IMES-5 RNA: a 148-nucleotide sequence.
Rfam's curators put it in the seed alignment.
[Rfam]
RNA sequence: UACUAGAGGACGUUUUAACAACUCGAGACGAUAAAAAAGAGAAUAGUAGAAAGAAGGAGAAGGGUGAAAAGCUGAAAGAAAUUUCACCACAUGAUGGACACGGGGUAAAGUCCAACACUAGGAAGCCCGCUAGGCCCCUUCAACUUCG
Numbered sequence: 001u002a003c004u005a006g007a008g009g010a011c012g013u014u015u016u017a018a019c020a021a022c023u024c025g026a027g028a029c030g031a032u033a034a035a036a037a038a039g040a041g042a043a044u045a046g047u048a049g050a051a052a053g054a055a056g057g058a059g060a061a062g063g064g065u066g067a068a069a070a071g072c073u074g075a076a077a078g079a080a081a082u083u084u085c086a087c088c089a090c091a092u093g094a095u096g097g098a099c100a101c102g103g104g105g106u107a108a109a110g111u112c113c114a115a116c117a118c119u120a121g122g123a124a125g126c127c128c129g130c131u132a133g134g135c136c137c138c139u140u141c142a143a144c145u146u147c148g
Stems, first nucleotide, its partner, number of pairs: 001048005014035004019030001053147004059141006073086005092117002095114005118133004